Small nucleolar RNA R44/J54/Z268 family: an 81-nucleotide RNA sequence from Arabidopsis lyrata. NCBI's taxonomy places the organism under Eukaryota, Streptophytina, Spermatophyta, eudicotyledons, Arabidopsis lyrata. The base pairs follow the family's consensus structure, which was predicted with PFOLD. Its Rfam clan is "SNORD74 clan". The family's RNA type in Rfam is C/D-box small nucleolar RNA.
[Rfam]
RNA sequence: AGUGCAAGUGAAGAUGAAAAGAUAGGGACAUCAUAAUUAGAAUGAUGAGCUAUGUCUAAACGGGAAUCUCUCUUAUGCAGA
Numbered sequence: 001a002g003u004g005c006a007a008g009u010g011a012a013g014a015u016g017a018a019a020a021g022a023u024a025g026g027g028a029c030a031u032c033a034u035a036a037u038u039a040g041a042a043u044g045a046u047g048a049g050c051u052a053u054g055u056c057u058a059a060a061c062g063g064g065a066a067u068c069u070c071u072c073u074u075a076u077g078c079a080g081a
Stems, first nucleotide, its partner, number of pairs: 003079004